[Rfam]
RNA sequence: GGCUAGCCCAGAUGGAAACGGCAUCCUAUUGUGCCGGGGUUCGGCGCAAUAGAUAUAGUGGACAGCUGGAAAUUGC
Numbered sequence: 001g002g003c004u005a006g007c008c009c010a011g012a013u014g015g016a017a018a019c020g021g022c023a024u025c026c027u028a029u030u031g032u033g034c035c036g037g038g039g040u041u042c043g044g045c046g047c048a049a050u051a052g053a054u055a056u057a058g059u060g061g062a063c064a065g066c067u068g069g070a071a072a073u074u075g076c
Stems, first nucleotide, its partner, number of pairs: 009068003013064002018059002023054003029049008
The record is a 76-nucleotide RNA sequence from Flavobacterium sp. PL002, which matches "Flavo-1 RNA" in Rfam. Rfam classes the family as a small RNA. Taxonomically the source falls in Flavobacterium (Bacteria, Pseudomonadati, Flavobacteriia, Flavobacteriales). The family's consensus secondary structure is taken from published work.